[Rfam]
RNA sequence: AACGGCACAAUCCGAGGACAACACGACAACAUCGUUCGUGUUUCUGCCUUCUGGUAGUUCCGAAGAUUU
Numbered sequence: 001a002a003c004g005g006c007a008c009a010a011u012c013c014g015a016g017g018a019c020a021a022c023a024c025g026a027c028a029a030c031a032u033c034g035u036u037c038g039u040g041u042u043u044c045u046g047c048c049u050u051c052u053g054g055u056a057g058u059u060c061c062g063a064a065g066a067u068u069u
Base pairs, nucleotide, nucleotide: 003062004061005060007058008057015049016048017047

Shown here is a 69-nucleotide sequence from Phytomonas sp. EM1, a member of the family "Trypanosomatid snoRNA TB9Cs1H2". For this family Rfam cites "A genome-wide analysis of C/D and H/ACA-like small nucleolar RNAs in Trypanosoma brucei reveals a trypanosome-specific pattern of rRNA modification" (Liang et al., RNA, 2005). The family's consensus secondary structure was predicted with WAR. The family has 5 seed sequences and 53 matches in Rfam 15.1.